The family of this 92-nucleotide RNA sequence from Roseobacter cerasinus is "Rhodo-rpoB RNA". NCBI's taxonomy places the organism under Bacteria, Pseudomonadota, Alphaproteobacteria, Roseobacteraceae, Roseobacter. The family's consensus secondary structure is taken from published work.
[Rfam]
RNA sequence: UGAUCGGGCGCGUGCUUUCGGGCAAGCACGCAGGGAUAGAUCUUCUUUUCGAUCUUUGAGCGUUCGCCACGGGCCGCCCCCCCGCUGCGUGA
Numbered sequence: 001u002g003a004u005c006g007g008g009c010g011c012g013u014g015c016u017u018u019c020g021g022g023c024a025a026g027c028a029c030g031c032a033g034g035g036a037u038a039g040a041u042c043u044u045c046u047u048u049u050c051g052a053u054c055u056u057u058g059a060g061c062g063u064u065c066g067c068c069a070c071g072g073g074c075c076g077c078c079c080c081c082c083c084g085c086u087g088c089g090u091g092a
Base pairs, nucleotide, nucleotide: 002042003041004040005039010031011030012029013028014027015026016025017024064092065091066090067089068087070084071083072082073081